[Rfam]
RNA sequence: UGCGAGACCCAUCAAAGGAGUAGUUCCCCACCCAAGAUCUAUUUUUCCAUAUUCUGAAUUC
Numbered sequence: 001u002g003c004g005a006g007a008c009c010c011a012u013c014a015a016a017g018g019a020g021u022a023g024u025u026c027c028c029c030a031c032c033c034a035a036g037a038u039c040u041a042u043u044u045u046u047c048c049a050u051a052u053u054c055u056g057a058a059u060u061c
Stems, first nucleotide, its partner, number of pairs: 017045007025037002